[Rfam]
Shown here is a 132-nucleotide sequence from Phyllostomus discolor, a member of the family "Small nucleolar RNA SNORA3/SNORA45 family". Its Rfam clan is "SNORA3 clan". The members of this family belong to the H/ACA class of snoRNAs which are thought to guide the sites of modification of uridines to pseudouridines. This family includes mouse snoMBI-28 and human homologues ACA3 (SNORA3) and ACA3-2 (SNORA45). Both ACA3 and ACA3-2 share the same host gene. MBI-28, ACA3 and ACA3-2 are all predicted to guide the pseudouridylation of residues in 28S rRNA. By type it is an H/ACA-box small nucleolar RNA.
RNA sequence: AUCAAGGCUAGAGUCACACUUGGGUAUCAGCUACUGCCUUAGUGUGCUGGAGUCCUCGAAGAAUCACUGCUGACUGUACUCACUGACUCUGGCCCCACUAUGGCAUGGCCAGGCACCAGGUCAGUCACAUGA
Numbered sequence: 001a002u003c004a005a006g007g008c009u010a011g012a013g014u015c016a017c018a019c020u021u022g023g024g025u026a027u028c029a030g031c032u033a034c035u036g037c038c039u040u041a042g043u044g045u046g047c048u049g050g051a052g053u054c055c056u057c058g059a060a061g062a063a064u065c066a067c068u069g070c071u072g073a074c075u076g077u078a079c080u081c082a083c084u085g086a087c088u089c090u091g092g093c094c095c096c097a098c099u100a101u102g103g104c105a106u107g108g109c110c111a112g113g114c115a116c117c118a119g120g121u122c123a124g125u126c127a128c129a130u131g132a
Stems, first nucleotide, its partner, number of pairs: 002059002005056002007053003012048002015046006023038004070124006083112003088107001090105002093103002